The family of this 444-nucleotide RNA from Natrialba magadii is "Archaeal RNase P". Rfam's curators write: Ribonuclease P (RNase P) is a ubiquitous endoribonuclease, found in archaea, bacteria and eukarya as well as chloroplasts and mitochondria. It is annotated as a ribozyme. NCBI's taxonomy places the organism under Archaea, Halobacteriales, Natrialbaceae, Natrialba, Natrialba magadii. On this family, see Frank and Pace, Annu Rev Biochem 1998: "Ribonuclease P: unity and diversity in a tRNA processing ribozyme".

[Rfam]
RNA sequence: UGCCCGACUCUCCGAGUCGCGCAACGCUCGCGAGGAAAGUCCCCCCACCUGUUCGGGCAGGUGACCGGACGCAAGUCCGGAGCGGGAGACCGCUGGCUCUGGAACAGAAACGACACGUCUCGGCCUGACCGAUGAUGCGCGCGAACCCGACCGAGAGGAAGGGGAGCUGACCCGCAGAGGGAGGGCGACUCAGAGCGCCUCCGGCGCGAAAGUCACCUUAUGCGAGACGGCGUGAGCCGUCGAGCCCCGUGUGGUCGAUCGAUCGCGGUUCGAAACCGCGGGUUGCGCACGUCGUAACCGACCGCACGGAGACGGCCGAGGAUCGAUGGAACGGCGAACCCUCACCGGUGCAAGUCCGCGCCGUGGUAGCCCGAACACCGCGGCCUCGCCGCGACGGCGCGGACGCUCAGCCGAAUGCCGGGAUGAACAGAAGGGGGCUUACUC
Numbered sequence: 001u002g003c004c005c006g007a008c009u010c011u012c013c014g015a016g017u018c019g020c021g022c023a024a025c026g027c028u029c030g031c032g033a034g035g036a037a038a039g040u041c042c043c044c045c046c047a048c049c050u051g052u053u054c055g056g057g058c059a060g061g062u063g064a065c066c067g068g069a070c071g072c073a074a075g076u077c078c079g080g081a082g083c084g085g086g087a088g089a090c091c092g093c094u095g096g097c098u099c100u101g102g103a104a105c106a107g108a109a110a111c112g113a114c115a116c117g118u119c120u121c122g123g124c125c126u127g128a129c130c131g132a133u134g135a136u137g138c139g140c141g142c143g144a145a146c147c148c149g150a151c152c153g154a155g156a157g158g159a160a161g162g163g164g165a166g167c168u169g170a171c172c173c174g175c176a177g178a179g180g181g182a183g184g185g186c187g188a189c190u191c192a193g194a195g196c197g198c199c200u201c202c203g204g205c206g207c208g209a210a211a212g213u214c215a216c217c218u219u220a221u222g223c224g225a226g227a228c229g230g231c232g233u234g235a236g237c238c239g240u241c242g243a244g245c246c247c248c249g250u251g252u253g254g255u256c257g258a259u260c261g262a263u264c265g266c267g268g269u270u271c272g273a274a275a276c277c278g279c280g281g282g283u284u285g286c287g288c289a290c291g292u293c294g295u296a297a298c299c300g301a302c303c304g305c306a307c308g309g310a311g312a313c314g315g316c317c318g319a320g321g322a323u324c325g326a327u328g329g330a331a332c333g334g335c336g337a338a339c340c341c342u343c344a345c346c347g348g349u350g351c352a353a354g355u356c357c358g359c360g361c362c363g364u365g366g367u368a369g370c371c372c373g374a375a376c377a378c379c380g381c382g383g384c385c386u387c388g389c390c391g392c393g394a395c396g397g398c399g400c401g402g403a404c405g406c407u408c409a410g411c412c413g414a415a416u417g418c419c420g421g422g423a424u425g426a427a428c429a430g431a432a433g434g435g436g437g438c439u440u441a442c443u444c
Stems, first nucleotide, its partner, number of pairs: 002442001003422004008417001012032001013030004037440003041437005046350004060346005065080005081094005095341002100337001102335001116325002119320007137305002354404011